A member of the RNA family "c-di-GMP-I riboswitch aptamer" from Desulfuribacillus alkaliarsenatis, 90 nucleotides long.
The family's consensus secondary structure is taken from published work.
[Rfam]
RNA sequence: UUCAGAAAAUAGCAAACUGACUGAAAGGUCAGGACGCAAAGCUAUGGGUCUAAGUCUAUGUAAUAUAGAUAUGAUAGCCAAGUUGCCUAA
Numbered sequence: 001u002u003c004a005g006a007a008a009a010u011a012g013c014a015a016a017c018u019g020a021c022u023g024a025a026a027g028g029u030c031a032g033g034a035c036g037c038a039a040a041g042c043u044a045u046g047g048g049u050c051u052a053a054g055u056c057u058a059u060g061u062a063a064u065a066u067a068g069a070u071a072u073g074a075u076a077g078c079c080a081a082g083u084u085g086c087c088u089a090a
Stems, first nucleotide, its partner, number of pairs: 012037002017032006040084004045080003048075003055069004
GEMM was predicted in a large-scale screen for bacterial structured RNA regulatory elements. A search with the family's covariance model found it, with a score of 86 bits. Lineage of the source: Bacteria > Desulfuribacillia > Desulfuribacillales > Desulfuribacillaceae > Desulfuribacillus.